[Rfam]
RNA sequence: UACUAUAAAAGGCAAACUUUCCCGAAAGGGAGGGACGCAAAGCCACGGGCCUGCAGGUAGUAAUAUACCAUGGUAGCCGGGCUGCCUUA
Numbered sequence: 001u002a003c004u005a006u007a008a009a010a011g012g013c014a015a016a017c018u019u020u021c022c023c024g025a026a027a028g029g030g031a032g033g034g035a036c037g038c039a040a041a042g043c044c045a046c047g048g049g050c051c052u053g054c055a056g057g058u059a060g061u062a063a064u065a066u067a068c069c070a071u072g073g074u075a076g077c078c079g080g081g082c083u084g085c086c087u088u089a
Base pairs, nucleotide, nucleotide: 012038013037017033018032019031020030022029023028041083042082043081044080046079047078048077049074050073051072056068
The family of this 89-nucleotide RNA from Desulfoscipio geothermicus is "c-di-GMP-I riboswitch aptamer". From the family's description: GEMM was predicted in a large-scale screen for bacterial structured RNA regulatory elements. A search with the family's covariance model found it, with a score of 74 bits.